[Rfam]
RNA sequence: UUACUGGACGCUUUAGCUAUUGAACUGUUUUGUCCCUCACUGUCAAACAACAAAUUGUUCUCUGUCAGAGAGUGAUAGAGCAGUUCAAUAGCUAAAGCUUUUUUUAUG
Numbered sequence: 001u002u003a004c005u006g007g008a009c010g011c012u013u014u015a016g017c018u019a020u021u022g023a024a025c026u027g028u029u030u031u032g033u034c035c036c037u038c039a040c041u042g043u044c045a046a047a048c049a050a051c052a053a054a055u056u057g058u059u060c061u062c063u064g065u066c067a068g069a070g071a072g073u074g075a076u077a078g079a080g081c082a083g084u085u086c087a088a089u090a091g092c093u094a095a096a097g098c099u100u101u102u103u104u105u106a107u108g
Base pairs, nucleotide, nucleotide: 002106003105006102011097012096013095014094015093016092017091018090019089020088021087022086023085024084025083026082027081028080029069030068031067032066034064049059050058051057052056